[Rfam]
RNA sequence: UUCACAUCGUCGCCUAAUUCGCGCAGGCCACCCCCCUACAACGGCCAGCGCGGAGCCGGGGAACCACUUCCGGGGUCCGCGGGGCGUCCGAGCCGCACUCCGUCCGACGGAGCACGUUCCCGGCGUUUUCCACGAGGCCCCUCGGGGCGAAUCGGCGCUCCCCCGCGCCGUAGGGCGGCCUUCACGCCCGAGCCCGACAGCUCACCCGGCCGGCCCUAUGGAAGGAACGA
Numbered sequence: 001u002u003c004a005c006a007u008c009g010u011c012g013c014c015u016a017a018u019u020c021g022c023g024c025a026g027g028c029c030a031c032c033c034c035c036c037u038a039c040a041a042c043g044g045c046c047a048g049c050g051c052g053g054a055g056c057c058g059g060g061g062a063a064c065c066a067c068u069u070c071c072g073g074g075g076u077c078c079g080c081g082g083g084g085c086g087u088c089c090g091a092g093c094c095g096c097a098c099u100c101c102g103u104c105c106g107a108c109g110g111a112g113c114a115c116g117u118u119c120c121c122g123g124c125g126u127u128u129u130c131c132a133c134g135a136g137g138c139c140c141c142u143c144g145g146g147g148c149g150a151a152u153c154g155g156c157g158c159u160c161c162c163c164c165g166c167g168c169c170g171u172a173g174g175g176c177g178g179c180c181u182u183c184a185c186g187c188c189c190g191a192g193c194c195c196g197a198c199a200g201c202u203c204a205c206c207c208g209g210c211c212g213g214c215c216c217u218a219u220g221g222a223a224g225g226a227a228c229g230a
Base pairs, nucleotide, nucleotide: 012214013213014212018054019053020052021051022050023049024048055210056209057208058207059206060205065144145195146194147193153170154169155168156167173189174188175187176186